[Rfam]
The family of this 248-nucleotide part of an RNA from Pontibacter cellulosilyticus is "Bacterial large subunit ribosomal RNA". It scores 2762 bits against the family's covariance model. Rfam 15.1 lists 51,934 matches to the family in 10,816 species. The source organism's lineage runs through Bacteria, Cytophagia, Cytophagales, Hymenobacteraceae and Pontibacter. Pairs were carried over by alignment from the consensus structure, which is taken from published work.

Nucleotides: 248
Stems, first nucleotide, its partner, number of pairs: 003161008013147004019047007049104005057098003064091005069084006108142003115135005164246001167244004171187005192237003195233005201226002205221001209220004
Number, partner (000 for none) and nucleotide at each position: 001000u002000u003161g004160g005159a006158g007157a008156u009155u010154u011000g012000a013147g014146g015145g016144g017000u018000c019047c020046u021045g022044a023043c024042c025041u026000u027000a028000g029000u030000a031000c032000g033000a034000g035000a036000g037000g038000a039000c040000c041025g042024g043023g044022u045021u046020g047019g048000a049104c050103g051102a052101g053100c054000c055000u056000c057098u058097g059096g060000u061000g062000g063000a064091c065090c066089u067088g068087u069084u070083g071082u072081g073080g074079c075000g076000c077000c078000a079074g080073c081072c082071g083070c084069a085000g086000c087068g088067c089066a090065g091064g092000g093000u094000a095000g096059c097058u098057a099000c100053g101052c102051u103050c104049g105000g106000a107000c108142g109141g110140g111000a112000u113000a114000a115135g116134c117133g118132c119131u120000g121000a122000a123000a124000g125000c126000a127000u128000c129000u130000a131119a132118g133117u134116g135115c136000g137000a138000a139000a140110c141109c142108c143000g144016c145015c146014c147013c148000a149000a150000g151000a152000u153000g154010a155009g156008a157007u158006c159005u160004c161003c162000c163000u164246u165000a166000a167244g168243g169242g170241c171187c172186g173185u174184g175183g176000g177000a178000g179000a180000c181000g182000a183175c184174c185173a186172c187171g188000u189000c190000g191000a192237u193236a194235g195233g196232u197231g198230g199229c200000a201226g202225g203000u204000g205221u206000a207000a208000a209220g210219u211218c212217a213000g214000a215000g216000a217212u218211g219210a220209c221205a222000a223000a224000g225202c226201c227000g228000a229199g230198c231197c232196a233195u234000a235194c236193u237192a238000a239000u240000u241170g242169c243168c244167c245000g246164a247000g248000c